[Rfam]
Background: The family of this 92-nucleotide RNA from Ziziphus jujuba is "MIR319 microRNA precursor family". A search with the family's covariance model found it, with a score of 87 bits. The source organism's lineage runs through Eukaryota, Streptophyta, Spermatophyta, Rosales and Ziziphus. The base pairs follow the family's consensus structure, which was predicted with RNAalifold. Rfam 15.1 lists 168 matches to the family in 79 species.
Nucleotides: 092
Stems, first nucleotide, its partner, number of pairs: 007086012021072002024069005
Number, partner (000 for none) and nucleotide at each position: 001000c002000a003000g004000a005000a006000a007086u008085g009084g010083g011082g012081g013080u014079u015078c016077c017076u018075u019000g020000c021072a022071g023000c024069c025068c026067a027066a028065a029000a030000c031000a032000g033000g034000g035000c036000c037000u038000a039000u040000g041000a042000g043000a044000a045000u046000a047000a048000a049000a050000a051000a052000a053000c054000u055000u056000g057000c058000u059000c060000a061000u062000u063000g064000u065028u066027u067026u068025g069024g070000a071022c072021u073000g074000a075018a076017g077016g078015g079014a080013g081012c082011u083010c084009c085008u086007a087000u088000u089000u090000c091000u092000u